A member of the RNA family "tRNA" from Rickettsia sp., 73 nucleotides long.

[Rfam]
RNA sequence: GCCGAUAUAGCUCAGUUGGUAGAGCAAUGUAUUCGUAAUACAGUGGUCAAGGGUUCAAUUCCCUUUAUCGGCA
Numbered sequence: 001g002c003c004g005a006u007a008u009a010g011c012u013c014a015g016u017u018g019g020u021a022g023a024g025c026a027a028u029g030u031a032u033u034c035g036u037a038a039u040a041c042a043g044u045g046g047u048c049a050a051g052g053g054u055u056c057a058a059u060u061c062c063c064u065u066u067a068u069c070g071g072c073a
Stems, first nucleotide, its partner, number of pairs: 001072007010025004028042004049065005

Lineage of the source: Bacteria > Pseudomonadati > Rickettsiaceae > Rickettsieae > Rickettsia. By type it is a transfer RNA.